[Rfam]
Nucleotides: 123
Stems, first nucleotide, its partner, number of pairs: 002107003026098001028097001039096002042093007051084005058077004
Number, partner (000 for none) and nucleotide at each position: 001000u002107g003106u004105a005000u006000u007000c008000c009000u010000u011000a012000u013000c014000u015000g016000u017000u018000a019000u020000c021000u022000a023000u024000u025000u026098u027000a028097u029000a030000u031000g032000u033000u034000u035000a036000u037000g038000u039096g040095g041000a042093g043092c044091c045090u046089a047088u048087c049000u050000u051084c052083c053082u054081g055080c056000u057000a058077u059076u060075u061074u062000c063000c064000c065000a066000g067000u068000c069000g070000c071000u072000a073000u074061a075060a076059a077058a078000c079000a080055g081054c082053g083052g084051g085000a086000a087048g088047a089046u090045a091044g092043g093042c094000c095040c096039u097028g098026a099000u100000g101000u102000a103000g104000u105004u106003g107002c108000c109000g110000c111000u112000u113000u114000a115000a116000c117000u118000c119000u120000c121000a122000a123000u
The family of this 123-nucleotide RNA sequence from Providencia rettgeri is "tp2". Rfam classes the family as a small RNA. The source organism's lineage runs through Bacteria, Pseudomonadati, Gammaproteobacteria, Providencia and Providencia rettgeri. Rfam's curators put it in the seed alignment.